[Rfam]
RNA sequence: AUCGUUCAUCUUUUGCACUAACUUAAUGCAAAAGACGGAAGUAGGAAGAUAGGAAAACCUCUUUCUUCCCAAGGGAGGAAAG
Numbered sequence: 001a002u003c004g005u006u007c008a009u010c011u012u013u014u015g016c017a018c019u020a021a022c023u024u025a026a027u028g029c030a031a032a033a034g035a036c037g038g039a040a041g042u043a044g045g046a047a048g049a050u051a052g053g054a055a056a057a058c059c060u061c062u063u064u065c066u067u068c069c070c071a072a073g074g075g076a077g078g079a080a081a082g
Base pairs, nucleotide, nucleotide: 003078005076006075007074009035010034011033012032013031014030015029016028017027044069045068046067047066048065049064

Notes: A member of the RNA family "Glutamine riboswitch aptamer (glnA leader)", 82 nucleotides long. Rfam links the family to the GO term glutamine binding. Rfam's curators put it in the seed alignment. A reference for the family is Ames and Breaker (2011), "Bacterial aptamers that selectively bind glutamine", RNA Biol.